[Rfam]
RNA sequence: AACGUGCUCCGGGGUCGGUGAAAGUCCGAGCCGGCGGUGACAGUCCGCGACCCGGGUCUCCUCCCCGCAGGGGUGGCGUCCCGGCUGAGCUGGUGGAACUCCAGCACCGACGGUGAGAGUCCGGAUGGGAGGAGGCACGAG
Number, nucleotide and partner (000 for none) at each position: 001a000002a000003c139004g138005u137006g136007c135008u133009c132010c131011g000012g000013g000014g000015u000016c028017g027018g026019u000020g000021a000022a000023a000024g000025u000026c018027c017028g016029a000030g120031c119032c109033g108034g048035c047036g046037g045038u000039g000040a000041c000042a000043g107044u106045c037046c036047g035048c034049g000050a000051c000052c084053c083054g082055g081056g080057u000058c000059u000060c000061c000062u000063c000064c000065c000066c000067g000068c000069a000070g000071g000072g000073g000074u000075g000076g000077c000078g000079u000080c056081c055082c054083g053084g052085c000086u000087g000088a000089g105090c104091u103092g102093g101094u000095g000096g000097a000098a000099c000100u000101c093102c092103a091104g090105c089106a044107c043108c033109g032110a000111c123112g122113g121114u000115g000116a000117g000118a000119g031120u030121c113122c112123g111124g000125a000126u000127g000128g000129g000130a000131g010132g009133a008134g000135g007136c006137a005138c004139g003140a000141g000

The record is a 141-nucleotide RNA from Actinomyces howellii, which matches "FMN riboswitch aptamer (RFN element)" in Rfam.